[Rfam]
The family of this 111-nucleotide sequence from Streptococcus suis is "Streptococcus RNA 266". Rfam 15.1 lists 223 matches to the family in 34 species. The base pairs follow the family's consensus structure. Lineage of the source: Bacteria > Bacilli > Lactobacillales > Streptococcaceae > Streptococcus suis. On this family, see Acebo et al., RNA 2012: "Identification of 88 regulatory small RNAs in the TIGR4 strain of the human pathogen Streptococcus pneumoniae".

RNA sequence: AAUGUGAGUGUGGUUGCUUUUCAUUAUAGGUCAUAUGGGACUUUUUUUCUAUACUCAAAAAGGCUCCAUAAUCUCCACGGUGGUUUUACCCACUACAGAAAUUAUAGAACC
Numbered sequence: 001a002a003u004g005u006g007a008g009u010g011u012g013g014u015u016g017c018u019u020u021u022c023a024u025u026a027u028a029g030g031u032c033a034u035a036u037g038g039g040a041c042u043u044u045u046u047u048u049c050u051a052u053a054c055u056c057a058a059a060a061a062g063g064c065u066c067c068a069u070a071a072u073c074u075c076c077a078c079g080g081u082g083g084u085u086u087u088a089c090c091c092a093c094u095a096c097a098g099a100a101a102u103u104a105u106a107g108a109a110c111c
Base pairs, nucleotide, nucleotide: 001025002024003023004022006020008017009016028043029042030041031040032039062111063110065108066107068105069104070103071102072101074099075098079094080093081092082091083090